The record is a 195-nucleotide RNA sequence from Capsicum baccatum, which matches "U2 spliceosomal RNA" in Rfam. The family's RNA type in Rfam is spliceosomal small nuclear RNA. Rfam 15.1 lists 71,512 matches to the family in 2,642 species. Pairs were carried over by alignment from the consensus structure, which is taken from published work.
[Rfam]
RNA sequence: UUAACUUUCUCGGCAAUUUGGUUAAGAUCAAGCGUAGUAUCUGUUCUUAUCAGUUUAAUAUCUGAUAUGUGGACCAUUGGUUUAGACGAUAUUAACUCUAUUUUUUGAGGGGAAGGUCCAUCAAGGUAGCUUGCUGCCUGGGCCUUCAUGUGUCGCCUAAACGUUGCACUACUGUUUUGGCCUGGUGCACCCCAC
Numbered sequence: 001u002u003a004a005c006u007u008u009c010u011c012g013g014c015a016a017u018u019u020g021g022u023u024a025a026g027a028u029c030a031a032g033c034g035u036a037g038u039a040u041c042u043g044u045u046c047u048u049a050u051c052a053g054u055u056u057a058a059u060a061u062c063u064g065a066u067a068u069g070u071g072g073a074c075c076a077u078u079g080g081u082u083u084a085g086a087c088g089a090u091a092u093u094a095a096c097u098c099u100a101u102u103u104u105u106u107g108a109g110g111g112g113a114a115g116g117u118c119c120a121u122c123a124a125g126g127u128a129g130c131u132u133g134c135u136g137c138c139u140g141g142g143c144c145u146u147c148a149u150g151u152g153u154c155g156c157c158u159a160a161a162c163g164u165u166g167c168a169c170u171a172c173u174g175u176u177u178u179g180g181c182c183u184g185g186u187g188c189a190c191c192c193c194a195c
Base pairs, nucleotide, nucleotide: 008027009026010025012023013022014021048067049066050065051064052063053062070084071083072082073081074080075079112147113146114145115144116143117142118141119140126137127136128135129134150188151187152186153185154184155183157179159177160176161175162174
About the family: U2 is a small nuclear RNA (snRNA) component of the spliceosome (involved in pre-mRNA splicing). Complementary binding between U2 snRNA (in an area lying towards the 5' end but 3' to hairpin I) and the branchpoint sequence (BPS) of the intron results the bulging out of an unpaired adenosine, on the BPS, which initiates a nucleophilic attack at the intronic 5' splice site, thus starting the first of two transesterification reactions that mediate splicing.